[Rfam]
RNA sequence: AGCCGUUGAUGACAAACAUAAUAAACUUUUCUGACACCUACUAUGAGAGCUGGACUCCGGCUCCUGAUUCUAACUUUAUUCUGAGGCUA
Numbered sequence: 001a002g003c004c005g006u007u008g009a010u011g012a013c014a015a016a017c018a019u020a021a022u023a024a025a026c027u028u029u030u031c032u033g034a035c036a037c038c039u040a041c042u043a044u045g046a047g048a049g050c051u052g053g054a055c056u057c058c059g060g061c062u063c064c065u066g067a068u069u070c071u072a073a074c075u076u077u078a079u080u081c082u083g084a085g086g087c088u089a
Stems, first nucleotide, its partner, number of pairs: 001088004049061005
Shown here is an 89-nucleotide RNA from Echeneis naucrates, a member of the family "Small nucleolar RNA SNORD60". By type it is a C/D-box small nucleolar RNA. Its family is annotated with nucleolus and RNA processing in the Gene Ontology. The family's consensus secondary structure was predicted with PFOLD. A search with the family's covariance model found it, with a score of 54 bits. Its Rfam clan is "SNORD60 clan".